[Rfam]
RNA sequence: GCCCCAUGUGUGCUCCUGGAGCGAUGCCAGCCUCCCAGCCCCACCACCAAGGGCCCCGGGCGGGCAGGCGGCGCCACACCUGGGCCUCAGUUACCUGUCCAGGUAGCGUGGGCAGGAAUACCUGCUGUAAGCAGUUAUCAGGACCAGGU
Number, nucleotide and partner (000 for none) at each position: 001g000002c060003c059004c058005c000006a000007u000008g054009u053010g000011u000012g000013c000014u000015c000016c000017u000018g000019g032020a000021g031022c030023g000024a000025u000026g000027c000028c000029a000030g022031c021032c019033u000034c000035c000036c000037a000038g000039c000040c000041c000042c000043a000044c000045c000046a000047c000048c000049a000050a000051g000052g000053g009054c008055c000056c000057c000058g004059g003060g002061c000062g000063g000064g000065c000066a000067g000068g000069c000070g000071g000072c000073g000074c000075c000076a135077c134078a104079c103080c102081u101082g100083g099084g098085c097086c000087u000088c000089a000090g000091u000092u000093a000094c000095c000096u000097g085098u084099c083100c082101a081102g080103g079104u078105a000106g000107c000108g000109u000110g000111g126112g125113c124114a123115g122116g000117a000118a000119u000120a000121c000122c115123u114124g113125c112126u111127g000128u000129a000130a000131g000132c000133a000134g077135u076136u000137a000138u000139c000140a000141g000142g000143a000144c000145c000146a000147g000148g000149u000
The family of this 149-nucleotide RNA from Sus scrofa is "Small nucleolar RNA ACA59".
The family's RNA type in Rfam is H/ACA-box small nucleolar RNA.
Pairs were carried over by alignment from the consensus structure, which was predicted with WAR.
Gene Ontology terms of the family: RNA processing and nucleolus.